The record is a 71-nucleotide sequence from Fregata magnificens, which matches "Small nucleolar RNA SNORD34" in Rfam. By type it is a C/D-box small nucleolar RNA. Rfam describes the family as follows. snoRNA U34 is found in intron 5 of the ribosomal protein L13a gene in humans. The family's consensus secondary structure was predicted with PFOLD. The family is grouped with related families in Rfam's "SNORD34 clan". The literature on the family includes a 2003 paper in Nucleic Acids Res by Chen et al., "The high diversity of snoRNAs in plants: identification and comparative study of 120 snoRNA genes from Oryza sativa".
RNA sequence: CUGUGUCGAUGAUGCGCUUUUACCUACAUUGUUCGAUGAUCCUUGAGAGAAACUUUAAUACUGAGACACGG
Numbered sequence: 001c002u003g004u005g006u007c008g009a010u011g012a013u014g015c016g017c018u019u020u021u022a023c024c025u026a027c028a029u030u031g032u033u034c035g036a037u038g039a040u041c042c043u044u045g046a047g048a049g050a051a052a053c054u055u056u057a058a059u060a061c062u063g064a065g066a067c068a069c070g071g
Stems, first nucleotide, its partner, number of pairs: 001071002004068004